[Rfam]
Rfam assigns this 73-nucleotide RNA from Pseudodesulfovibrio piezophilus to the family "tRNA". Clan: tRNA clan. The family has 954 seed sequences and 5,335,975 matches in Rfam 15.1. It scores 66 bits against the family's covariance model. Pairs were carried over by alignment from the consensus structure, which is taken from published work. The organism belongs to Pseudodesulfovibrio piezophilus, within Bacteria. It is annotated as a transfer RNA. From the family's description: Transfer RNA (tRNA) molecules are approximately 80 nucleotides in length.
RNA sequence: GCUGACGUAGCUCAAUCGGUAGAGCGCAUCCUUGGUAAGGAUGAGGUAGGCAGUUCAAUCCUGCUCGUCAGCU
Dot-bracket structure: (((((((..((((........)))).(((((.......))))).....(((((.......)))))))))))).